Overview: Nuclear RNase P: a 400-nucleotide RNA from Dissoconium aciculare. Its family is annotated with ribonuclease P complex, ribonuclease P activity and tRNA processing in the Gene Ontology. A search with the family's covariance model found it, with a score of 32 bits. Ribonuclease P (RNase P) is a ubiquitous endoribonuclease, found in archaea, bacteria and eukarya as well as chloroplasts and mitochondria. A reference for the family is Brown (1999), "The Ribonuclease P Database", Nucleic Acids Res.
RNA sequence: UCCUUUGAGAGCCCAGCGUGUCCGCGACCUGCUCGCUGGCAAAUGAGAAAUUCGGAGUAAUCUUCACCUUUCAUCCGUCAUCCCGGGGGCAGUGGAGACAUUGCGCCUGUGGCUCUGGCGUUCUGCCCGUGAGGGCCUACCGUGACUCUUCACGGUUGCAUUUGGCAUCAGAAAUCUCAGCCUCAAUCUCGCUCAGGGCCUCGUGCCAUGUUCGAAGUGGGGGCUAUGGGAGUCGGUGCGAAGAUGGUGUGUACGGCGCUCAAUUGAGCCACGUACGAUCACUUCAGUGCAAUACACGGCGUGUCUUACUCUAUUCUCUUGGCUGUGAGAUGGUCUUCAUGGCUGUCUUGCACCAGGGCGUGGCGAGGAUAUCAUUCGAUUCCGAUUACUCUUGCGGGGA
Dot-bracket structure: ((((...((...[[........((.........)).................(((((....((((...........................................................((((....))))..(((((((....))))))).((((.((..............((((((...................................))))))........))))))))))......................................................]].(((((((..........................................................))))))).......))))).......))...))))
Numbered sequence: 001u002c003c004u005u006u007g008a009g010a011g012c013c014c015a016g017c018g019u020g021u022c023c024g025c026g027a028c029c030u031g032c033u034c035g036c037u038g039g040c041a042a043a044u045g046a047g048a049a050a051u052u053c054g055g056a057g058u059a060a061u062c063u064u065c066a067c068c069u070u071u072c073a074u075c076c077g078u079c080a081u082c083c084c085g086g087g088g089g090c091a092g093u094g095g096a097g098a099c100a101u102u103g104c105g106c107c108u109g110u111g112g113c114u115c116u117g118g119c120g121u122u123c124u125g126c127c128c129g130u131g132a133g134g135g136c137c138u139a140c141c142g143u144g145a146c147u148c149u150u151c152a153c154g155g156u157u158g159c160a161u162u163u164g165g166c167a168u169c170a171g172a173a174a175u176c177u178c179a180g181c182c183u184c185a186a187u188c189u190c191g192c193u194c195a196g197g198g199c200c201u202c203g204u205g206c207c208a209u210g211u212u213c214g215a216a217g218u219g220g221g222g223g224c225u226a227u228g229g230g231a232g233u234c235g236g237u238g239c240g241a242a243g244a245u246g247g248u249g250u251g252u253a254c255g256g257c258g259c260u261c262a263a264u265u266g267a268g269c270c271a272c273g274u275a276c277g278a279u280c281a282c283u284u285c286a287g288u289g290c291a292a293u294a295c296a297c298g299g300c301g302u303g304u305c306u307u308a309c310u311c312u313a314u315u316c317u318c319u320u321g322g323c324u325g326u327g328a329g330a331u332g333g334u335c336u337u338c339a340u341g342g343c344u345g346u347c348u349u350g351c352a353c354c355a356g357g358g359c360g361u362g363g364c365g366a367g368g369a370u371a372u373c374a375u376u377c378g379a380u381u382c383c384g385a386u387u388a389c390u391c392u393u394g395c396g397g398g399g400a
Stems, first nucleotide, its partner, number of pairs: 001400004008393002013299002023035002053384005062243004125136004139156007158239004163235002179225006301372007